[Rfam]
RNA sequence: UUCGCGCGGCCGCCUAAUCCGCCGUCAGGCGGAGCCGGGGACCCACUCUUUCCGGGGUGAAUCGGCGCCGUACCCGCGCCGUAGGGCACUUCCACGCCCGAACCCGUCAGCUAACCCGGUAGGCGGUAUGGAAGCUAGGA
Numbered sequence: 001u002u003c004g005c006g007c008g009g010c011c012g013c014c015u016a017a018u019c020c021g022c023c024g025u026c027a028g029g030c031g032g033a034g035c036c037g038g039g040g041a042c043c044c045a046c047u048c049u050u051u052c053c054g055g056g057g058u059g060a061a062u063c064g065g066c067g068c069c070g071u072a073c074c075c076g077c078g079c080c081g082u083a084g085g086g087c088a089c090u091u092c093c094a095c096g097c098c099c100g101a102a103c104c105c106g107u108c109a110g111c112u113a114a115c116c117c118g119g120u121a122g123g124c125g126g127u128a129u130g131g132a133a134g135c136u137a138g139g140a
Base pairs, nucleotide, nucleotide: 011125012124013123014122018033019032020031021030022029023028034120035119036118037117038116039115044054055105056104057103063081064080065079066078084099085098086097087096
A member of the RNA family "c-di-AMP riboswitch aptamer (ydaO/yuaA leader)" from Nonomuraea glycinis, 140 nucleotides long.